Shown here is a 54-nucleotide RNA sequence from Oncorhynchus kisutch, a member of the family "UnaL2 LINE 3' element". Taxonomically the source falls in Oncorhynchus (Eukaryota, Metazoa, Actinopteri, Clupeocephala). Rfam links the family to the GO term transposition, RNA-mediated. By type it is a cis-regulatory element. The family's consensus secondary structure is taken from published work.
RNA sequence: GAAUGCACUUACUGUAUGUCGCUCUGGAUAAGAGCAUCUGCUAAAUGACUAAAA
Numbered sequence: 001g002a003a004u005g006c007a008c009u010u011a012c013u014g015u016a017u018g019u020c021g022c023u024c025u026g027g028a029u030a031a032g033a034g035c036a037u038c039u040g041c042u043a044a045a046u047g048a049c050u051a052a053a054a
Base pairs, nucleotide, nucleotide: 013043014041015040016039021035022034023033024032025031